[Rfam]
Nucleotides: 432
Stems, first nucleotide, its partner, number of pairs: 015033006034430001036428002044409003049390002054078006064070001085386003089143002094137002096112002100109003120130001147164005167382002170379001172378005177372002182193004200359002204355002210343003214339007222329002225245002228242002249299001251297003259289001261287004269279003306324003310320001396405002412424004
Number, partner (000 for none) and nucleotide at each position: 001000g002000g003000u004000a005000g006000u007000a008000g009000c010000a011000a012000a013000u014000u015033u016032u017031c018030a019029a020028a021000u022000g023000a024000a025000a026000a027000c028020u029019u030018u031017g032016a033015a034430g035000g036428c037427u038000g039000a040000a041000g042000a043000c044409g045408a046407g047000a048000a049390a050389g051000g052000u053000u054078c055077c056076a057075u058074g059073u060000g061000a062000a063000c064070a065000a066000c067000a068000c069000u070064u071000a072000c073059a074058c075057a076056u077055g078054g079000g080000u081000u082000a083000g084000u085386c086385g087384a088000u089143c090142u091000u092000a093000a094137g095136a096112g097111a098000c099000a100109g101108g102107g103000g104000a105000a106000g107102c108101c109100c110000a111097u112096c113000u114000a115000a116000u117000a118000g119000c120130g121000c122000g123000c124000c125000u126000a127000g128000g129000g130120u131000g132000a133000g134000c135000u136095u137094u138000g139000a140000a141000a142090a143089g144000g145000a146000a147164u148163u149162g150161g151160g152000u153000u154000a155000a156000a157000a158000u159000u160151c161150c162149u163148a164147a165000a166000c167382u168381g169000a170379g171000a172378u173377g174376c175375g176374g177372c178371g179000a180000u181000u182193g183192a184191u185190g186000a187000c188000a189000a190185u191184a192183u193182u194000a195000a196000g197000g198000a199000g200359u201358c202000c203000u204355g205354a206000g207000a208000c209000a210343u211342c212341g213000g214339c215338g216337g217336g218335g219334g220333c221000c222329u223328u224000a225245a226244g227000a228242a229241g230000a231000g232000u233000u234000a235000u236000c237000u238000u239000u240000c241229c242228u243000g244226u245225u246000u247000a248000a249299c250000g251297g252296c253295c254000u255000g256000u257000c258000c259289a260000c261287c262286c263285u264284a265000g266000a267000a268000a269279u270278g271277a272000c273000u274000u275000a276000g277271u278270c279269g280000a281000c282000g283000g284264u285263a286262g287261g288000a289259u290000c291000u292000a293000g294000c295253g296252g297251u298000a299249g300000g301000a302000a303000g304000g305000g306324c307323a308322c309000c310320g311000c312000a313000u314000g315000u316000c317000g318000c319000a320310u321000a322308g323307u324306g325000u326000c327000c328223a329222g330000u331000g332000u333220g334219c335218u336217u337216c338215c339214g340000g341212u342211g343210g344000c345000c346000c347000u348000u349000g350000a351000a352000a353000a354205u355204u356000c357000a358201g359200a360000a361000g362000a363000c364000c365000a366000a367000g368000u369000g370000u371178c372177g373000u374176c375175u376174g377173c378172a379170c380000c381168c382167a383000g384087u385086u386085g387000u388000a389050c390049u391000c392000a393000u394000a395000a396405c397404c398000g399000c400000a401000u402000c403000a404397g405396g406000u407046c408045u409044u410000u411000a412424a413423g414422g415421u416000g417000a418000a419000c420000a421415a422414c423413c424412u425000c426000u427037g428036g429000g430034u431000a432000g